[Rfam]
The family of this 74-nucleotide sequence from Cnephaeus nilssonii is "mir-9193 microRNA precursor family". Rfam 15.1 lists 6,008 matches to the family in 8 species. Taxonomically the source falls in Cnephaeus (Eukaryota, Deuterostomia, Sarcopterygii, Amniota).
RNA sequence: GGCGGGGGAGGGGGGUCCCUUAGCCCUGAUUGUGAGAGGGUGCAGGCCAGGCCAGGGGACCCCACCGGUGUAUG
Numbered sequence: 001g002g003c004g005g006g007g008g009a010g011g012g013g014g015g016u017c018c019c020u021u022a023g024c025c026c027u028g029a030u031u032g033u034g035a036g037a038g039g040g041u042g043c044a045g046g047c048c049a050g051g052c053c054a055g056g057g058g059a060c061c062c063c064a065c066c067g068g069u070g071u072a073u074g
Base pairs, nucleotide, nucleotide: 004071006069010065012063013062014061015060016059017058018057019056020055021054023052024051025050028047030045031044032043033042034041